[Rfam]
RNA sequence: UAACUGCCAUAACUCCGAGCUUUUUUCACUAAGUUGCUACGUGCUGUUUGAGUGUUCCAAUAUGGGAUAACUAAUAGUCAAUAAGUGAUUAACGCCAGUGACAUAAUGUCACCAGGGUUGGUUUAGAAAUGAAUCGGCCUCCCGCAUUUGGAAAGGUGUUCCGUGGCUAAACAA
Number, nucleotide and partner (000 for none) at each position: 001u000002a000003a168004c000005u000006g000007c000008c000009a000010u000011a160012a159013c158014u000015c156016c155017g000018a000019g095020c094021u000022u092023u091024u000025u000026u088027c087028a086029c085030u000031a000032a000033g082034u081035u080036g079037c000038u000039a000040c000041g000042u000043g000044c000045u000046g000047u000048u000049u000050g000051a000052g000053u000054g000055u000056u000057c000058c000059a000060a000061u000062a000063u000064g000065g000066g000067a000068u000069a000070a000071c000072u000073a000074a000075u000076a000077g000078u000079c036080a035081a034082u033083a000084a000085g029086u028087g027088a026089u000090u000091a023092a022093c000094g020095c019096c000097a000098g112099u111100g110101a109102c108103a000104u000105a000106a000107u000108g102109u101110c100111a099112c098113c000114a000115g140116g139117g138118u137119u136120g135121g134122u133123u132124u131125a130126g000127a000128a000129a000130u125131g124132a123133a122134u121135c120136g119137g118138c117139c116140u115141c151142c150143c000144g000145c000146a000147u000148u000149u000150g142151g141152a000153a000154a000155g016156g015157u000158g013159u012160u011161c000162c000163g000164u000165g000166g000167c000168u003169a000170a000171a000172c000173a000174a000
A member of the RNA family "Molybdenum/Tungsten riboswitch aptamer (Moco RNA motif)" from Photobacterium aquimaris, 174 nucleotides long. The source organism's lineage runs through Bacteria, Pseudomonadati, Pseudomonadota, Vibrionales and Photobacterium.